[Rfam]
RNA sequence: CAAUGCUAUGAUGGUCAAAGCUCAUAGGAAUUGGACGUUUUUUGCGUGCAGUUUCUGAGGGUUU
Numbered sequence: 001c002a003a004u005g006c007u008a009u010g011a012u013g014g015u016c017a018a019a020g021c022u023c024a025u026a027g028g029a030a031u032u033g034g035a036c037g038u039u040u041u042u043u044g045c046g047u048g049c050a051g052u053u054u055c056u057g058a059g060g061g062u063u064u
Base pairs, nucleotide, nucleotide: 018064019063020062021061022060023059032050033049035047036046037045